Annotation:
narK RNA: a 69-nucleotide sequence. The family's consensus secondary structure is taken from published work. It is one of the family's seed sequences.
RNA sequence: GGCGCGUGCCUUGCUAUAGCUCUGCGUAAGUAAUCAAAGCCGAUUGCUCAUCCACGACAAAGACGCCGU
Numbered sequence: 001g002g003c004g005c006g007u008g009c010c011u012u013g014c015u016a017u018a019g020c021u022c023u024g025c026g027u028a029a030g031u032a033a034u035c036a037a038a039g040c041c042g043a044u045u046g047c048u049c050a051u052c053c054a055c056g057a058c059a060a061a062g063a064c065g066c067c068g069u
Stems, first nucleotide, its partner, number of pairs: 029048007